[Rfam]
Nucleotides: 111
Stems, first nucleotide, its partner, number of pairs: 003066009012056002015026004029052006036044002075106014
Number, partner (000 for none) and nucleotide at each position: 001000c002000a003066c004065u005064c006063g007062a008061c009060c010059u011058g012056g013055c014000a015026c016025g017024c018023c019000g020000u021000c022000a023018g024017g025016c026015g027000a028000u029052g030051g031050u032049c033048g034047g035000a036044c037043u038000g039000a040000a041000c042000a043037g044036g045000g046000g047034c048033c049032g050031a051030c052029c053000c054000u055013g056012c057000g058011c059010a060009g061008g062007u063006c064005g065004a066003g067000g068000a069000u070000g071000c072000u073000a074000u075106g076105a077104g078103g079102g080101c081100c082099g083098g084097u085096u086095g087094u088093c089000g090000g091000g092000g093088g094087a095086c096085a097084g098083c099082c100081g101080g102079c103078c104077c105076u106075c107000g108000a109000u110000c111000u

Shown here is a 111-nucleotide RNA from Thermomonas hydrothermalis, a member of the family "Xanthomonadaceae sRNA asX1". The organism belongs to Thermomonas, within Bacteria. The family's RNA type in Rfam is small RNA.